The record is a 129-nucleotide RNA sequence from Desulforamulus ruminis, which matches "Ribosomal protein L20 leader" in Rfam. Lineage of the source: Bacteria > Clostridia > Eubacteriales > Peptococcaceae > Desulforamulus ruminis. For this family Rfam cites "Diverse mechanisms for regulating ribosomal protein synthesis in Escherichia coli" (Zengel and Lindahl, Prog Nucleic Acid Res Mol Biol, 1994). Rfam's curators write: This family is a putative r-protein leader autoregulatory structure found in B. subtilis and other low-GC Gram-positive bacteria. It is located in the 5' untranslated regions of mRNAs encoding initiation factor 3 followed by ribosomal proteins L35 and L20 (infC-rpmI-rplT). A Rho-independent transcription terminator structure that is probably involved in regulation is included at the 3' end.
RNA sequence: UAACUUAAGCAGAAGCAUCCGCUUCUCACCUUACGCCCAAGGCUAGUAGGGUUCGAUAGUAUACAAUAAGCUGUCUUAUUGUAGUGUGUCUGAUUUUUAGCGGGUGUAUGCCCGCUUUUAUUAUUGCAC
Dot-bracket structure: ..........((((((....)))))).(((..((((.....))..))..)))..............................................(((((((....))))))).............